RNA: Small nucleolar RNA snR60/Z15/Z230/Z193/J17
Organism: Pachyramphus minor
RNA sequence: CAGAUACAGUGAUGAUGGCAUAGUUCAGCCGAGCGUCCUGUGAUGAACACUUGUGUCUUUCGCUCCUAUCUGAUGUGUCUG
Dot-bracket structure: ...(((((.................................................................)))))...